[Rfam]
RNA sequence: UGAUGUAUACCCUGUAGAACCGAAUGUGUGUGGGCUGGCCGCAGUCACAGAUUCGGUUUUAGGGGAGUACAUGAG
Numbered sequence: 001u002g003a004u005g006u007a008u009a010c011c012c013u014g015u016a017g018a019a020c021c022g023a024a025u026g027u028g029u030g031u032g033g034g035c036u037g038g039c040c041g042c043a044g045u046c047a048c049a050g051a052u053u054c055g056g057u058u059u060u061a062g063g064g065g066a067g068u069a070c071a072u073g074a075g
Base pairs, nucleotide, nucleotide: 003072004071005070006069007068010065011064012063016060017059018058019057020056021055022054023053024052025051027049028048029047030046
The family of this 75-nucleotide RNA from Clarias magur is "mir-10 microRNA precursor family". On this family, see Lee and Ambros, Science 2001: "An extensive class of small RNAs in Caenorhabditis elegans". Rfam links the family to the GO terms RISC complex and miRNA-mediated post-transcriptional gene silencing. A search with the family's covariance model found it, with a score of 57 bits.